This 69-nucleotide RNA sequence from Castor canadensis belongs to the Rfam family "Small nucleolar RNA SNORD30".
Clan: SNORD30 clan.
The pairing is the family consensus, mapped onto this sequence.
RNA sequence: ACAUAUGAUGACUUAAUAGAAUCUCGUUCGGCUGAUGGCUUGCUGUUGAGACUCGAAAAUCUGAUUUUC
Numbered sequence: 001a002c003a004u005a006u007g008a009u010g011a012c013u014u015a016a017u018a019g020a021a022u023c024u025c026g027u028u029c030g031g032c033u034g035a036u037g038g039c040u041u042g043c044u045g046u047u048g049a050g051a052c053u054c055g056a057a058a059a060u061c062u063g064a065u066u067u068u069c
Base pairs, nucleotide, nucleotide: 022051023050024049025048026047029045030044031043032042